[Rfam]
RNA sequence: AGGAAUCUUUGCUCUUAGAUAUUUGUCUAGUAGGUUUCUCAUAAAGAGAAGCCCUC
Number, nucleotide and partner (000 for none) at each position: 001a000002g000003g000004a000005a000006u000007c000008u000009u000010u000011g000012c000013u000014c000015u000016u000017a000018g000019a000020u000021a000022u000023u000024u000025g000026u000027c000028u000029a000030g000031u000032a000033g053034g052035u051036u050037u049038c048039u047040c046041a000042u000043a000044a000045a000046g040047a039048g038049a037050a036051g035052c034053c033054c000055u000056c000
RNA: U7 small nuclear RNA
Organism: Oreochromis niloticus